[Rfam]
RNA sequence: CGAUUAAAAAAUUUCCGAGUUAUAUUUUCUAAAGUGAAAGCCAUGAAAAUAUAACCAAUGGGUAUCAGGAGAAAUUCUUAUGCCUCCCGUGAUUGGAAAGGAAAAGGAUUCGACAACAA
Number, nucleotide and partner (000 for none) at each position: 001c000002g000003a000004u112005u000006a110007a000008a000009a000010a000011a000012u104013u103014u102015c101016c100017g000018a000019g055020u054021u053022a052023u051024a050025u049026u048027u047028u046029c045030u000031a000032a000033a000034g041035u040036g000037a000038a000039a000040g035041c034042c000043a000044u000045g029046a028047a027048a026049a025050u024051a023052u022053a021054a020055c019056c000057a000058a000059u000060g085061g084062g083063u082064a081065u080066c000067a078068g077069g076070a075071g000072a000073a000074a000075u070076u069077c068078u067079u000080a065081u064082g063083c062084c061085u060086c096087c095088c000089g000090u000091g000092a000093u000094u000095g087096g086097a000098a000099a000100g016101g015102a014103a013104a012105a000106g000107g000108a000109u000110u006111c000112g004113a000114c000115a000116a000117c000118a000119a000
RNA: Molybdenum/Tungsten riboswitch aptamer (Moco RNA motif)